The record is a 67-nucleotide RNA sequence from Streptococcus agalactiae, which matches "Streptococcus sRNA Spd-sr37" in Rfam. The sequence is in the family's curated seed alignment. By type it is a small RNA.

[Rfam]
RNA sequence: CAAUAACUAUGAUGGUCAAAGCUCAUGGAAUUUGUAAGUCUUUUUGACGUACAAUUUUCGAGAGUUU
Number, nucleotide and partner (000 for none) at each position: 001c000002a000003a000004u000005a000006a000007c000008u000009a000010u000011g000012a000013u000014g000015g000016u000017c000018a000019a067020a066021g065022c064023u063024c062025a000026u000027g000028g000029a000030a000031u000032u000033u053034g052035u051036a050037a000038g048039u000040c000041u000042u000043u000044u000045u000046g000047a000048c038049g000050u036051a035052c034053a033054a000055u000056u000057u000058u000059c000060g000061a000062g024063a023064g022065u021066u020067u019